RNA sequence: AGAGUACAGUAAAGCCAUAGCAGAAGCGCUAACAGUGCAGCCUUGUUAGAUUCCAAUGAAUCUGCAAAUUCUGCU
Number, nucleotide and partner (000 for none) at each position: 001a000002g000003a000004g000005u000006a000007c000008a000009g000010u000011a000012a000013a000014g041015c040016c000017a000018u000019a075020g074021c073022a072023g071024a070025a069026g038027c037028g036029c000030u000031a000032a000033c000034a000035g000036u028037g027038c026039a000040g015041c014042c000043u000044u000045g000046u000047u064048a063049g062050a061051u060052u059053c058054c000055a000056a000057u000058g053059a052060a051061u050062c049063u048064g047065c000066a000067a000068a000069u025070u024071c023072u022073g021074c020075u019
Background
Mammalian CPEB3 ribozyme: a 75-nucleotide RNA sequence from Alligator sinensis. The organism belongs to Alligator, within Eukaryota. The family's consensus secondary structure is taken from published work.